This 117-nucleotide RNA from Asparagus officinalis belongs to the Rfam family "MIR168 microRNA precursor family". Its family is annotated with RISC complex and miRNA-mediated post-transcriptional gene silencing in the Gene Ontology. The literature on the family includes a 2002 paper in Genes Dev by Reinhart et al., "MicroRNAs in plants". It scores 79 bits against the family's covariance model. The family has 10 seed sequences and 518 matches in Rfam 15.1.

RNA sequence: UUCGCGUCCGCCUCUGAUUCGCUUGGUGCAGGUCGGGUCCGCCUCGAUCCGGCAUCCGGCGACGGCGAUGGCGGCGGAUCCCGCCUUGCAUCAACUGAAUCGGAGGCGGAUCAGCGA
Numbered sequence: 001u002u003c004g005c006g007u008c009c010g011c012c013u014c015u016g017a018u019u020c021g022c023u024u025g026g027u028g029c030a031g032g033u034c035g036g037g038u039c040c041g042c043c044u045c046g047a048u049c050c051g052g053c054a055u056c057c058g059g060c061g062a063c064g065g066c067g068a069u070g071g072c073g074g075c076g077g078a079u080c081c082c083g084c085c086u087u088g089c090a091u092c093a094a095c096u097g098a099a100u101c102g103g104a105g106g107c108g109g110a111u112c113a114g115c116g117a
Stems, first nucleotide, its partner, number of pairs: 013104002017100004023094010034083004039077005
Dot-bracket structure: ............((..((((..((((((((((.((((.(((((.............................)))))..)))).))))))))))..))))..)).............